[Rfam]
RNA sequence: UGUUGUCUAUGAUGAUGACUUAUUAAUAUUGCCUGAUAUUUCUAUGAGGGCAAUAUCAGUCACUACCUCAUCUGAGACAUUU
Number, nucleotide and partner (000 for none) at each position: 001u000002g081003u000004u079005g078006u077007c076008u000009a000010u000011g000012a000013u000014g000015a000016u000017g000018a000019c000020u000021u000022a000023u000024u000025a000026a000027u000028a000029u000030u000031g000032c000033c000034u000035g000036a000037u000038a000039u000040u000041u000042c000043u000044a000045u000046g000047a000048g000049g000050g000051c000052a000053a000054u000055a000056u000057c000058a000059g000060u000061c000062a000063c000064u000065a000066c000067c000068u000069c000070a000071u000072c000073u000074g000075a000076g007077a006078c005079a004080u000081u002082u000

This 82-nucleotide RNA from Aquarana catesbeiana belongs to the Rfam family "Small nucleolar RNA SNORD11B". A search with the family's covariance model found it, with a score of 52 bits. On this family, see Yang et al., Nucleic Acids Res 2006: "snoSeeker: an advanced computational package for screening of guide and orphan snoRNA genes in the human genome". Its family is annotated with nucleolus and RNA processing in the Gene Ontology. The family is grouped with related families in Rfam's "SNORD11 clan". The base pairs follow the family's consensus structure, which was predicted with WAR.